[Rfam]
RNA sequence: CCCUCGUCCGACAAAUCGCUAUUCGAAGCUUCCACACGGAGAGAUCACGCUUUUUUUGCGCGCUUCUUUCAUUUCCUCGAGCUUUGGGAGAAAGUCCCCGGACAUUCGUUCGCUUGCGAACGGAUUGCGGAAACGCGCCGCCAUAGAAGCACUGCGGCUGAUCUCGGCCGCCCAGUUCCUCGUCUGUCUUGCCCAGCCCUGCCCGUCACACCAAAGUCGGCCUCGUCUGCUUCUCCGGGGAGGGUGUCGCUUUCCGAGCUCGGGGACCACAUGGACGAAGAUAUGAGUCCGCGCCUCGGGUGACGAGUUUGAUGCCUGAUCUGGGGAGCUGGGGUCGAUGGCGGGUUCAGCCGCUUGGGUGGUCCGGACUUGGGGCGUUUUGACGGUGGCUCGAGAGGUUUCGUCAUGAUACCACAGAUAUGCGAUUGCUCGCUCUUGUUUCUCUUCGGGGAAGCCGGGGCGAAGUUACUCGACGGGGCUUAUUCUUGGUGCGAGG
Numbered sequence: 001c002c003c004u005c006g007u008c009c010g011a012c013a014a015a016u017c018g019c020u021a022u023u024c025g026a027a028g029c030u031u032c033c034a035c036a037c038g039g040a041g042a043g044a045u046c047a048c049g050c051u052u053u054u055u056u057u058g059c060g061c062g063c064u065u066c067u068u069u070c071a072u073u074u075c076c077u078c079g080a081g082c083u084u085u086g087g088g089a090g091a092a093a094g095u096c097c098c099c100g101g102a103c104a105u106u107c108g109u110u111c112g113c114u115u116g117c118g119a120a121c122g123g124a125u126u127g128c129g130g131a132a133a134c135g136c137g138c139c140g141c142c143a144u145a146g147a148a149g150c151a152c153u154g155c156g157g158c159u160g161a162u163c164u165c166g167g168c169c170g171c172c173c174a175g176u177u178c179c180u181c182g183u184c185u186g187u188c189u190u191g192c193c194c195a196g197c198c199c200u201g202c203c204c205g206u207c208a209c210a211c212c213a214a215a216g217u218c219g220g221c222c223u224c225g226u227c228u229g230c231u232u233c234u235c236c237g238g239g240g241a242g243g244g245u246g247u248c249g250c251u252u253u254c255c256g257a258g259c260u261c262g263g264g265g266a267c268c269a270c271a272u273g274g275a276c277g278a279a280g281a282u283a284u285g286a287g288u289c290c291g292c293g294c295c296u297c298g299g300g301u302g303a304c305g306a307g308u309u310u311g312a313u314g315c316c317u318g319a320u321c322u323g324g325g326g327a328g329c330u331g332g333g334g335u336c337g338a339u340g341g342c343g344g345g346u347u348c349a350g351c352c353g354c355u356u357g358g359g360u361g362g363u364c365c366g367g368a369c370u371u372g373g374g375g376c377g378u379u380u381u382g383a384c385g386g387u388g389g390c391u392c393g394a395g396a397g398g399u400u401u402c403g404u405c406a407u408g409a410u411a412c413c414a415c416a417g418a419u420a421u422g423c424g425a426u427u428g429c430u431c432g433c434u435c436u437u438g439u440u441u442c443u444c445u446u447c448g449g450g451g452a453a454g455c456c457g458g459g460g461c462g463a464a465g466u467u468a469c470u471c472g473a474c475g476g477g478g479c480u481u482a483u484u485c486u487u488g489g490u491g492c493g494a495g496g
Stems, first nucleotide, its partner, number of pairs: 002496006008489004014427006023088001024086006039070006092481003096478004126137004254398002260394005269387002273380004429465002431462006
Dot-bracket structure: .((((((((((..((((((...(((((((.........((((((....................))))))..........)))))).)...[[[.[[[[..........................((((....))))....................................................................................................................((....(((((....((..((((....................................................................................................)))).....))..)))))..)).......................)))))).((((((((....................)))))).)).........]]]]]]]....)))).))))))

RNase MRP: a 496-nucleotide RNA sequence from Neurospora tetrasperma. Its Rfam clan is "RNaseP clan". NCBI's taxonomy places the organism under Eukaryota, Dikarya, Ascomycota, Pezizomycotina, Neurospora tetrasperma.